[Rfam]
RNA: FMN riboswitch aptamer (RFN element)
RNA sequence: AAAGUUCUUCGGGGCAGGGUGAAAUUCCCUACUGGCGGUAUAGUCCGCGACCCAUGAGUUUUUGUCAGGUGCGCAGAUGAAAACAAAAUGGCUGAUUUGGUGAAACUCCAAAACCAACAGUAAAGUCUGGAUGGUAGAAGAAACUG
Numbered sequence: 001a002a003a004g005u006u007c008u009u010c011g012g013g014g015c016a017g018g019g020u021g022a023a024a025u026u027c028c029c030u031a032c033u034g035g036c037g038g039u040a041u042a043g044u045c046c047g048c049g050a051c052c053c054a055u056g057a058g059u060u061u062u063u064g065u066c067a068g069g070u071g072c073g074c075a076g077a078u079g080a081a082a083a084c085a086a087a088a089u090g091g092c093u094g095a096u097u098u099g100g101u102g103a104a105a106c107u108c109c110a111a112a113a114c115c116a117a118c119a120g121u122a123a124a125g126u127c128u129g130g131a132u133g134g135u136a137g138a139a140g141a142a143a144c145u146g
Stems, first nucleotide, its partner, number of pairs: 005142006017029003031126002033116002035048004043114002052091004096112005118129003